The family of this 75-nucleotide sequence from Anguilla anguilla is "mir-551 microRNA precursor family". On this family, see Murchison et al., Genome Res 2008: "Conservation of small RNA pathways in platypus". The organism belongs to Anguilla, within Eukaryota. The family's consensus secondary structure was predicted with RNAalifold.
Nucleotides: 075
Stems, first nucleotide, its partner, number of pairs: 002074001004072004009067006016060002021055004028050003
Number, partner (000 for none) and nucleotide at each position: 001000a002074g003000u004072c005071c006070u007069u008000g009067g010066a011065a012064g013063c014062c015000a016060a017059g018000u019000g020000u021055g022054g023053g024052u025000g026000u027000g028050g029049c030048c031000u032000g033000c034000a035000g036000u037000u038000g039000u040000g041000a042000u043000g044000u045000c046000a047000c048030g049029g050028c051000g052024a053023c054022c055021c056000a057000u058000c059017c060016u061000u062014g063013g064012u065011u066010u067009c068000u069007g070006a071005g072004g073000c074002u075000u